The family of this 67-nucleotide RNA from Gellertiella hungarica is "S-element". Rfam's curators write: This family represents a group of S-elements from p42d and related plasmids. The S-element has multiple functions and is believed to act as a negative regulator of repC transcription, be required for efficient replication and act as a translational enhancer of repC. Gene Ontology terms of the family: mRNA transcription and translation regulator activity. By type it is a cis-regulatory element.
RNA sequence: UGUCAAGAGUCUUUGGCAUCGUUUGGUGCGCUGAUUUCUGCUGCCUUUUCGAAAGGUGAGAAAGAUG
Numbered sequence: 001u002g003u004c005a006a007g008a009g010u011c012u013u014u015g016g017c018a019u020c021g022u023u024u025g026g027u028g029c030g031c032u033g034a035u036u037u038c039u040g041c042u043g044c045c046u047u048u049u050c051g052a053a054a055g056g057u058g059a060g061a062a063a064g065a066u067g
Stems, first nucleotide, its partner, number of pairs: 010063001012061003017058004022054002024051001025049002028046001030044002033041001